The record is a 95-nucleotide RNA from Acanthoscelides obtectus, which matches "mir-277 microRNA precursor family" in Rfam.
The family's consensus secondary structure was predicted with RNAalifold.
Gene Ontology terms of the family: RISC complex and miRNA-mediated post-transcriptional gene silencing.
A reference for the family is Liu et al. (2010), "MicroRNAs of Bombyx mori identified by Solexa sequencing", BMC Genomics.
It scores 64 bits against the family's covariance model.
The organism belongs to Acanthoscelides, within Eukaryota.
RNA sequence: AACCCGAUUGACGUCGUGCCAGAGGCGCGUUUACACAGAAUCCUCUCCAAUGUGAAAUCUGUAAAUGCACUAUCUGGUACGACAGUCCAUUGGGA
Numbered sequence: 001a002a003c004c005c006g007a008u009u010g011a012c013g014u015c016g017u018g019c020c021a022g023a024g025g026c027g028c029g030u031u032u033a034c035a036c037a038g039a040a041u042c043c044u045c046u047c048c049a050a051u052g053u054g055a056a057a058u059c060u061g062u063a064a065a066u067g068c069a070c071u072a073u074c075u076g077g078u079a080c081g082a083c084a085g086u087c088c089a090u091u092g093g094g095a
Stems, first nucleotide, its partner, number of pairs: 008089001010087002015081009025070001027068009